Source information
This 308-nucleotide sequence from Rhodococcus ruber belongs to the Rfam family "Mycobacterium smegmatis small RNA 1". Its family is annotated with RNA polymerase binding in the Gene Ontology. Mycobacterium smegmatis small RNA 1 is highly expressed during stationary phase of growth. Ms1 RNA directly interacts with RNA polymerase (RNAP), but in a different way than 6S, which is present in other bacteria. Ms1 does not require the presence of the main sigma factor for RNAP interaction. There is evidence that Ms1 RNA may function similar to 6S RNA in M. smegmatis which does not have 6S RNA. The match comes from Rfam's covariance-model search (187 bits). The family's consensus secondary structure was predicted with CMfinder. On this family, see Hnilicova et al., Nucleic Acids Res 2014: "Ms1, a novel sRNA interacting with the RNA polymerase core in mycobacteria".
[Rfam]
RNA sequence: ACGGAAGGACGGAAGGCCAAGAGCGAAUCGGAAGAGAAGGUUCGAUCUCCCGACCGGACUUCCCAGCACGGACACCGAGCACCCACGCGGAGCCGAUGCCACUAUAAGGGCAAAAGCGUUGUGGGCUUGCGAGAUUCGGGUCUUCGAGGGCGAGCACCCCGCACCCGUUGCGAGGACGAACCAGCGAUAUCCGAACACUCGCCGAGGCCAGUGACACACAACCCAUGCAGCACGCUUGGUAACUCGGCAGUCCGUGCUGGCGGGCGACGCCACCGAAGUCAAUUCGGCGACGUCGCCCGCUUACAUGU
Dot-bracket structure: ..((.((..(((..((...((..((((((.........))))))..)).))..)))..)).))(((((((((..(((.(...(((.(((..((...((((........)))).....(((((((((((((((..((((((...(((.((.((....((.((((.....)))).)).))..))..)))..))))))...))))..))))).......)))))).......)).))).)))...).)))...)))))))))((((((((((.(.(((.........))).).))))))))))........